[Rfam]
RNA sequence: AUAAUGAUACUUCCGCCUUGAACGCUUCACAGCAUUGGGCGGCUCGGCAUAAGCAUGCGGAGGUCUGAGAUAGGACAUGC
Numbered sequence: 001a002u003a004a005u006g007a008u009a010c011u012u013c014c015g016c017c018u019u020g021a022a023c024g025c026u027u028c029a030c031a032g033c034a035u036u037g038g039g040c041g042g043c044u045c046g047g048c049a050u051a052a053g054c055a056u057g058c059g060g061a062g063g064u065c066u067g068a069g070a071u072a073g074g075a076c077a078u079g080c
Base pairs, nucleotide, nucleotide: 012077013042014041015040016039017038018037043062044061045060047058048057049056063076064075065074
Notes:
pemK RNA: an 80-nucleotide RNA sequence from Moschus moschiferus. By type it is a cis-regulatory element. The match comes from Rfam's covariance-model search (46 bits).